[Rfam]
Nucleotides: 090
Base pairs, nucleotide, nucleotide: 001041002040004038009030010029011028012027013026014025015024063090064089065088066087067086068084069083070082071081
Number, partner (000 for none) and nucleotide at each position: 001041g002040g003000a004038c005000g006000g007000g008000a009030g010029g011028a012027a013026a014025c015024c016000u017000u018000u019000g020000g021000g022000a023000c024015g025014g026013u027012u028011u029010c030009c031000a032000u033000g034000a035000a036000u037000u038004g039000g040002u041001c042000c043000a044000c045000c046000c047000c048000c049000c050000a051000a052000u053000c054000u055000c056000g057000g058000a059000c060000g061000a062000g063090g064089c065088g066087u067086c068084a069083c070082c071081g072000g073000g074000g075000a076000c077000c078000c079000g080000a081071c082070g083069g084068u085000c086067g087066g088065c089064g090063c